Annotation
The record is a 120-nucleotide sequence from Nesterenkonia xinjiangensis, which matches "SAM (S-adenosyl methionine) riboswitch aptamer" in Rfam. The family's consensus secondary structure is taken from published work. It scores 52 bits against the family's covariance model. The organism belongs to Nesterenkonia, within Bacteria.
RNA sequence: AAUCACGAGCACCCGCCAUCACGGACCUGGCCGGCGGGGCGGCAACCCUCACUCUGCACCGGGGUGCCCCCAGGGGACGAUUCGACGCCGCCGGGUCCCCGGCCGGCGUCAGGAGAGCGC
Numbered sequence: 001a002a003u004c005a006c007g008a009g010c011a012c013c014c015g016c017c018a019u020c021a022c023g024g025a026c027c028u029g030g031c032c033g034g035c036g037g038g039g040c041g042g043c044a045a046c047c048c049u050c051a052c053u054c055u056g057c058a059c060c061g062g063g064g065u066g067c068c069c070c071c072a073g074g075g076g077a078c079g080a081u082u083c084g085a086c087g088c089c090g091c092c093g094g095g096u097c098c099c100c101g102g103c104c105g106g107c108g109u110c111a112g113g114a115g116a117g118c119g120c
Stems, first nucleotide, its partner, number of pairs: 001082004009040001012038005023032002041068003046064003085109006091102004